Ribosomal protein L10 leader: a 134-nucleotide RNA sequence from Flintibacter faecis. The base pairs follow the family's consensus structure, which was predicted with CMfinder. It is annotated as a cis-regulatory leader. A reference for the family is Zengel and Lindahl (1994), "Diverse mechanisms for regulating ribosomal protein synthesis in Escherichia coli", Prog Nucleic Acid Res Mol Biol.

[Rfam]
RNA sequence: GAUAGAAUAUUCUAGCGUUCAAAGACAGCAGGUGCCCCAGUCGGGCGUAAUCCCUGCCGAGAGUGCAUUCAACGACAUAGUUUGAAUGGUACUGUCCUCCUGUCUUUUGACGCGGAGGAUUUUUAUUUUGUUGG
Numbered sequence: 001g002a003u004a005g006a007a008u009a010u011u012c013u014a015g016c017g018u019u020c021a022a023a024g025a026c027a028g029c030a031g032g033u034g035c036c037c038c039a040g041u042c043g044g045g046c047g048u049a050a051u052c053c054c055u056g057c058c059g060a061g062a063g064u065g066c067a068u069u070c071a072a073c074g075a076c077a078u079a080g081u082u083u084g085a086a087u088g089g090u091a092c093u094g095u096c097c098u099c100c101u102g103u104c105u106u107u108u109g110a111c112g113c114g115g116a117g118g119a120u121u122u123u124u125a126u127u128u129u130g131u132u133g134g
Stems, first nucleotide, its partner, number of pairs: 028057005034046003095119006101112004